[Rfam]
RNA sequence: ACAUAACCGCGUGACUGACGCUGAAGAUGGAGCACCAUCGGGGAGCGCGGGGAUAAAGGCCGCGCGUCUGGGCAUGUCUC
Numbered sequence: 001a002c003a004u005a006a007c008c009g010c011g012u013g014a015c016u017g018a019c020g021c022u023g024a025a026g027a028u029g030g031a032g033c034a035c036c037a038u039c040g041g042g043g044a045g046c047g048c049g050g051g052g053a054u055a056a057a058g059g060c061c062g063c064g065c066g067u068c069u070g071g072g073c074a075u076g077u078c079u080c
Base pairs, nucleotide, nucleotide: 003054004053007050008049009048010047011046012045015042016041017068018067019066020065021064027038028037029036030035057075059073060072061071
Overview
ZMP/ZTP riboswitch aptamer (pfl RNA motif): an 80-nucleotide sequence from Oceanibaculum indicum. The match comes from Rfam's covariance-model search (59 bits). Lineage of the source: Bacteria > Alphaproteobacteria > Oceanibaculaceae > Oceanibaculum > Oceanibaculum indicum.